[Rfam]
RNA sequence: AUGGAGUUGAUGAUUUUUUCCCCAGAUGAUCGAAGUUGAUUAUACUGAGCGCAUUUAUUAAUCUCUUUCGAGAGACCAAGCCAAUAUUCUGAUCCAU
Numbered sequence: 001a002u003g004g005a006g007u008u009g010a011u012g013a014u015u016u017u018u019u020c021c022c023c024a025g026a027u028g029a030u031c032g033a034a035g036u037u038g039a040u041u042a043u044a045c046u047g048a049g050c051g052c053a054u055u056u057a058u059u060a061a062u063c064u065c066u067u068u069c070g071a072g073a074g075a076c077c078a079a080g081c082c083a084a085u086a087u088u089c090u091g092a093u094c095c096a097u
Stems, first nucleotide, its partner, number of pairs: 001097005